[Rfam]
Rfam assigns this 220-nucleotide sequence from Streptomyces sp. RP5T to the family "Streptomyces RNA 1601". The match comes from Rfam's covariance-model search (178 bits). A reference for the family is Vockenhuber et al. (2011), "Deep sequencing-based identification of small non-coding RNAs in Streptomyces coelicolor", RNA Biol. It is annotated as a small RNA. Identified by deep sequencing of transcriptome at the end of exponential growth phase. Appears longer on northern blot than sequencing transcript. Streptomyces specific.
RNA sequence: GACGACCGGCCGGACACGCAUGUGUGAAAGUGUGACCGGCCCACAAGUGGAGGCUCCGAUCUCCCACCCGACCGCCCCCUGGGACGGCGGGUCACCCCGGUCAGGCGGCCACCAUCGUUCCGUACGGACGAUGGAGUCGCCCGAAAGCGCGCCCCGCGGCAUCGCGGCGGUGCUCCGGCAGUGUUUGGAGCCCCGUCUGUGAUCGUCCGGGGCAUUUUUG
Numbered sequence: 001g002a003c004g005a006c007c008g009g010c011c012g013g014a015c016a017c018g019c020a021u022g023u024g025u026g027a028a029a030g031u032g033u034g035a036c037c038g039g040c041c042c043a044c045a046a047g048u049g050g051a052g053g054c055u056c057c058g059a060u061c062u063c064c065c066a067c068c069c070g071a072c073c074g075c076c077c078c079c080u081g082g083g084a085c086g087g088c089g090g091g092u093c094a095c096c097c098c099g100g101u102c103a104g105g106c107g108g109c110c111a112c113c114a115u116c117g118u119u120c121c122g123u124a125c126g127g128a129c130g131a132u133g134g135a136g137u138c139g140c141c142c143g144a145a146a147g148c149g150c151g152c153c154c155c156g157c158g159g160c161a162u163c164g165c166g167g168c169g170g171u172g173c174u175c176c177g178g179c180a181g182u183g184u185u186u187g188g189a190g191c192c193c194c195g196u197c198u199g200u201g202a203u204c205g206u207c208c209g210g211g212g213c214a215u216u217u218u219u220g
Stems, first nucleotide, its partner, number of pairs: 004102006012037002038093005044070001047067004051062002072087003075083003104141003108138001112134008151213006157205003163201003166197005172191005